[Rfam]
RNA sequence: UCAUCACCAUCAUUCCUGAAUAGUCUUCGGGCAAUUGAUGCUGGAAGACUUUGGUCUUCCGGUGAUGUCGCAAAAGCAAGCAGAAACCCUCGGAAGAUCAAACUUCCGAGGGUUUUUUGUU
Number, nucleotide and partner (000 for none) at each position: 001u000002c000003a000004u000005c000006a000007c000008c040009a039010u038011c000012a035013u034014u033015c031016c030017u029018g028019a027020a000021u000022a000023g000024u000025c000026u000027u019028c018029g017030g016031g015032c000033a014034a013035u012036u000037g000038a010039u009040g008041c062042u061043g060044g059045a058046a057047g056048a055049c000050u000051u000052u000053g000054g000055u048056c047057u046058u045059c044060c043061g042062g041063u000064g000065a000066u000067g000068u000069c000070g000071c000072a000073a000074a000075a000076g000077c000078a000079a000080g000081c000082a117083g116084a115085a114086a113087c112088c111089c110090u109091c108092g107093g106094a105095a104096g103097a000098u000099c000100a000101a000102a000103c096104u095105u094106c093107c092108g091109a090110g089111g088112g087113u086114u085115u084116u083117u082118u000119g000120u000121u000
Record summary: Shown here is a 121-nucleotide RNA from Gilliamella sp. Occ3-1, a member of the family "Histidine operon leader". A reference for the family is Kolter and Yanofsky (1982), "Attenuation in amino acid biosynthetic operons", Annu Rev Genet. About the family: At least 6 amino acid operons are known to be regulated by attenuation. In each a leader sequence of 150-200 bp is found upstream of the first gene in the operon. This leader sequence can assume two different secondary structures known as the terminator and the anti-terminator structure. In each case the leader also codes for very short peptide sequence that is rich in the end product amino acid of the operon. The terminator structure is recognised as a termination signal for RNA polymerase and the operon is not transcribed. This structure forms when the cell has an excess of the regulatory amino acid and ribosome movement over the leader transcript is not impeded. When there is a deficiency of the charged tRNA of the regulatory amino acid the ribosome translating the leader peptide stalls and the antiterminator structure can form. This allows RNA polymerase to transcribe the operon. In the Rfam alignment the consensus structure is of the terminator structure. Gene Ontology term of the family: histidine biosynthetic process.